Notes: RAGATH-18 RNA: a 62-nucleotide RNA sequence from Clostridium kluyveri.

[Rfam]
RNA sequence: CCUUUGGAGCAUCAUAUCAAACCAAAGUAGCUUAGGCAAAAUGGGGUGUAUUGAAAAAGGAA
Numbered sequence: 001c002c003u004u005u006g007g008a009g010c011a012u013c014a015u016a017u018c019a020a021a022c023c024a025a026a027g028u029a030g031c032u033u034a035g036g037c038a039a040a041a042u043g044g045g046g047u048g049u050a051u052u053g054a055a056a057a058a059g060g061a062a
Base pairs, nucleotide, nucleotide: 001060002059003058004057005056009049010048011047012046013045022044023043024042030037031036

Source information:
Pairs were carried over by alignment from the consensus structure, which is taken from published work. The sequence is in the family's curated seed alignment. The family's RNA type in Rfam is small RNA.